[Rfam]
RNA: Small nucleolar RNA SNORD53/SNORD92
Organism: Labeo rohita
RNA sequence: UGCACAUGAUGAUACUGGAGAAUGGUUUCGCUUUCAUGACCAGAUGUCAUGGGAUGAUGCACUUCUCUUGGCUGUCUGAUGCG
Numbered sequence: 001u002g003c004a005c006a007u008g009a010u011g012a013u014a015c016u017g018g019a020g021a022a023u024g025g026u027u028u029c030g031c032u033u034u035c036a037u038g039a040c041c042a043g044a045u046g047u048c049a050u051g052g053g054a055u056g057a058u059g060c061a062c063u064u065c066u067c068u069u070g071g072c073u074g075u076c077u078g079a080u081g082c083g
Stems, first nucleotide, its partner, number of pairs: 001083004
Dot-bracket structure: ((((...........................................................................))))